A member of the RNA family "Mu-gpT-DE RNA", 51 nucleotides long.
The sequence is in the family's curated seed alignment.
The family's RNA type in Rfam is small RNA.
RNA sequence: CCCUGACAGUUGCAUGAUGCGACUGACAAACCCAGACAGGAGAAUAACAUG
Numbered sequence: 001c002c003c004u005g006a007c008a009g010u011u012g013c014a015u016g017a018u019g020c021g022a023c024u025g026a027c028a029a030a031c032c033c034a035g036a037c038a039g040g041a042g043a044a045u046a047a048c049a050u051g
Stems, first nucleotide, its partner, number of pairs: 002040004007025005